[Rfam]
RNA: Iron response element I
Organism: Geotrypetes seraphini
RNA sequence: CUGAGUCUUGCUUCAACAGUGCUUGAACGGACCGG
Number, nucleotide and partner (000 for none) at each position: 001c035002u034003g033004a000005g032006u031007c030008u029009u000010g028011c000012u027013u026014c025015a024016a023017c021018a000019g000020u000021g017022c000023u016024u015025g014026a013027a012028c010029g008030g007031a006032c005033c003034g002035g001